[Rfam]
RNA sequence: GCCCAAAGUCGCACGUGCCCAUGGGUGUCCGCUGGUCCUCUAAUUGGUGAGGAUACGGUAAGGUACCUGGAAUUAACCCCUCCAGUCGCUAUCUCGGCCUUCCGAGAAAUGCGAGGACAUCUGAAGCAACGACGGUGCGGGCCUUU
Numbered sequence: 001g002c003c004c005a006a007a008g009u010c011g012c013a014c015g016u017g018c019c020c021a022u023g024g025g026u027g028u029c030c031g032c033u034g035g036u037c038c039u040c041u042a043a044u045u046g047g048u049g050a051g052g053a054u055a056c057g058g059u060a061a062g063g064u065a066c067c068u069g070g071a072a073u074u075a076a077c078c079c080c081u082c083c084a085g086u087c088g089c090u091a092u093c094u095c096g097g098c099c100u101u102c103c104g105a106g107a108a109a110u111g112c113g114a115g116g117a118c119a120u121c122u123g124a125a126g127c128a129a130c131g132a133c134g135g136u137g138c139g140g141g142c143c144u145u146u
Stems, first nucleotide, its partner, number of pairs: 001142004008133004016128003023122008031059004037052004067085005086114004092107006